[Rfam]
RNA sequence: UCCCCUGUAACGCUUGCGAGCUCGGCGGUGAAGCAGGCAUAAGUCCUAACAACUGCGUGGCCUGUCCCCCUUUAGUGCGCAGGUUGCAAGGCUGCUGCAAAGUAAUUUGCGGUAGGCUGGCAAGUGGUGACUGAGGGGCGGCUCAGGCUGGCGACAGAGCAGGCAAAACUCAGCCCUGCGCACAGAUGGGGGAGAACUGGCUUAAGCAGUUGUUAGAC
Numbered sequence: 001u002c003c004c005c006u007g008u009a010a011c012g013c014u015u016g017c018g019a020g021c022u023c024g025g026c027g028g029u030g031a032a033g034c035a036g037g038c039a040u041a042a043g044u045c046c047u048a049a050c051a052a053c054u055g056c057g058u059g060g061c062c063u064g065u066c067c068c069c070c071u072u073u074a075g076u077g078c079g080c081a082g083g084u085u086g087c088a089a090g091g092c093u094g095c096u097g098c099a100a101a102g103u104a105a106u107u108u109g110c111g112g113u114a115g116g117c118u119g120g121c122a123a124g125u126g127g128u129g130a131c132u133g134a135g136g137g138g139c140g141g142c143u144c145a146g147g148c149u150g151g152c153g154a155c156a157g158a159g160c161a162g163g164c165a166a167a168a169c170u171c172a173g174c175c176c177u178g179c180g181c182a183c184a185g186a187u188g189g190g191g192g193a194g195a196a197c198u199g200g201c202u203u204a205a206g207c208a209g210u211u212g213u214u215a216g217a218c
Base pairs, nucleotide, nucleotide: 011018012017043218044217045216047215048214049213050212051211052210053209059202060201061200062199064197065196066192067191069190070189071188073186075183076182077181078180079179080178081177082176083175084123085122086121087120089118090117092115093114094113095112096111097110098109099108100107101106125129131173132172133171134170135169141164142163143162148157149156150155
RNA: Protozoan signal recognition particle RNA